[Rfam]
RNA sequence: CGCAGUGACACGGGGUGCCCGCCAGGGCUGAGAGAAGACCCGUUGAACCUGAUCUAGUUCGUACUAGCGAAGGGAUGUCGCGAAUGAGCAUU
Numbered sequence: 001c002g003c004a005g006u007g008a009c010a011c012g013g014g015g016u017g018c019c020c021g022c023c024a025g026g027g028c029u030g031a032g033a034g035a036a037g038a039c040c041c042g043u044u045g046a047a048c049c050u051g052a053u054c055u056a057g058u059u060c061g062u063a064c065u066a067g068c069g070a071a072g073g074g075a076u077g078u079c080g081c082g083a084a085u086g087a088g089c090a091u092u
Base pairs, nucleotide, nucleotide: 006080007079008078009077010076011042012041013040014039016036017028018027019026020025048073049072050071054067055066056065057064
Annotation: The family of this 92-nucleotide RNA sequence from Rathayibacter sp. Leaf296 is "TPP riboswitch aptamer (THI element)". Its family is annotated with thiamine pyrophosphate binding in the Gene Ontology. For this family Rfam cites "Metabolite-binding RNA domains are present in the genes of eukaryotes" (Sudarsan et al., RNA, 2003). NCBI's taxonomy places the organism under Bacteria, Bacillati, Actinomycetota, Actinomycetes, Rathayibacter.